RNA sequence: CUUGACCGAACCCAGCAGCAGCGGCACCUCCCGGUCCUGCCCGUAGGUGGCCAGCAAUGCCUGCGCCUC
Numbered sequence: 001c002u003u004g005a006c007c008g009a010a011c012c013c014a015g016c017a018g019c020a021g022c023g024g025c026a027c028c029u030c031c032c033g034g035u036c037c038u039g040c041c042c043g044u045a046g047g048u049g050g051c052c053a054g055c056a057a058u059g060c061c062u063g064c065g066c067c068u069c
Stems, first nucleotide, its partner, number of pairs: 015025002028065001030063001032059002037054003041050003
RNA: ASpks TB sRNA